RNA sequence: CCAAAGGCUCUUCUCAGAGCCACCCACUACUUCUUAAGGAGAGCUGU
Numbered sequence: 001c002c003a004a005a006g007g008c009u010c011u012u013c014u015c016a017g018a019g020c021c022a023c024c025c026a027c028u029a030c031u032u033c034u035u036a037a038g039g040a041g042a043g044c045u046g047u
Base pairs, nucleotide, nucleotide: 006021007020008019009018010017011016

Rfam assigns this 47-nucleotide sequence from Ardeotis kori to the family "Histone 3' UTR stem-loop". By type it is a cis-regulatory element. Pairs were carried over by alignment from the consensus structure, which is taken from published work. The organism belongs to Ardeotis, within Eukaryota.